[Rfam]
RNA: lactis-plasmid RNA
Organism: Limosilactobacillus fermentum
RNA sequence: CCAAAAAUAAAAAGAAUCGUCUGAAACGAGGAACAAACUAAAAUGUAAAUUUUAGGUGUGACCGAGUGGAAGAUGAUUACUUUUUACCGUAAGUGUAUAUCCACUUAC
Dot-bracket structure: .......(((((((((((((((...((..((.(((..(((((((....))))))).)))..))..))...)))))))).)))))))..(((((((......)))))))